[Rfam]
RNA sequence: GCCCCUUUAACUCAGCUGGUUAGAGUAGGGGAUUUUUAAUCCCAAGGUCCCCGGUUCGAGUCCGGGAGGGGGCA
Dot-bracket structure: (((((((..((((.........))))..((((.......))))......(((((.......)))))))))))).
Numbered sequence: 001g002c003c004c005c006u007u008u009a010a011c012u013c014a015g016c017u018g019g020u021u022a023g024a025g026u027a028g029g030g031g032a033u034u035u036u037u038a039a040u041c042c043c044a045a046g047g048u049c050c051c052c053g054g055u056u057c058g059a060g061u062c063c064g065g066g067a068g069g070g071g072g073c074a
Stems, first nucleotide, its partner, number of pairs: 001073007010026004029043004050066005